Nucleotides: 243
Stems, first nucleotide, its partner, number of pairs: 011229004018057008059223005068099002100209003108180002111177004183203004
Number, partner (000 for none) and nucleotide at each position: 001000c002000u003000g004000u005000u006000u007000c008000g009000u010000a011229c012228g013227c014226c015000g016000a017000g018057c019056u020055c021054u022053g023052c024051u025050g026000g027000c028000g029000a030000a031000a032000c033000c034000a035000g036000g037000g038000u039000g040000u041000g042000a043000a044000g045000c046000a047000u048000g049000a050025c051024a052023g053022c054021a055020g056019a057018g058000g059223c060222g061221g062220g063219g064000g065000a066000a067000c068099c069098a070000u071000u072000u073000c074000c075000g076000g077000c078000g079000g080000u081000c082000u083000g084000g085000g086000a087000u088000c089000a090000g091000a092000u093000c094000g095000u096000c097000u098069u099068g100209g101208g102207g103000u104000g105000a106000a107000g108180c109179c110000c111177g112176c113175g114174g115000c116000g117000g118000u119000g120000c121000u122000c123000g124000g125000a126000a127000c128000u129000u130000u131000u132000c133000a134000g135000a136000g137000g138000c139000g140000g141000c142000g143000c144000a145000a146000g147000c148000c149000g150000u151000u152000c153000c154000c155000c156000c157000u158000g159000g160000g161000u162000u163000c164000c165000c166000g167000u168000g169000u170000g171000c172000c173000u174114c175113c176112g177111c178000a179109g180108g181000c182000c183203g184202g185201g186200c187000a188000g189000c190000u191000g192000a193000c194000u195000c196000u197000c198000a199000g200186g201185c202184c203183c204000g205000a206000a207102u208101c209100c210000g211000a212000c213000a214000g215000c216000u217000a218000a219063c220062u221061u222060c223059g224000a225000a226014g227013g228012c229011g230000c231000u232000a233000u234000g235000a236000g237000a238000g239000g240000g241000a242000a243000u
Shown here is a 243-nucleotide RNA from Arthrobacter woluwensis, a member of the family "c-di-AMP riboswitch aptamer (ydaO/yuaA leader)". The match comes from Rfam's covariance-model search (60 bits). Its family is annotated with cyclic-di-AMP binding and regulation of gene expression in the Gene Ontology.